RNA: Fluoride riboswitch aptamer (crcB RNA motif)
Organism: Acidomonas methanolica
RNA sequence: GUCGGAAUUGGCAAUGGACUCUGCCUGACCUGCAAAGGUCGAACCGCCCGCGAGGGCUGAUGAUUCCUACCUCGCC
Numbered sequence: 001g002u003c004g005g006a007a008u009u010g011g012c013a014a015u016g017g018a019c020u021c022u023g024c025c026u027g028a029c030c031u032g033c034a035a036a037g038g039u040c041g042a043a044c045c046g047c048c049c050g051c052g053a054g055g056g057c058u059g060a061u062g063a064u065u066c067c068u069a070c071c072u073c074g075c076c
Base pairs, nucleotide, nucleotide: 010025011024012023013022016067017066018065020063021062046057047056048055049054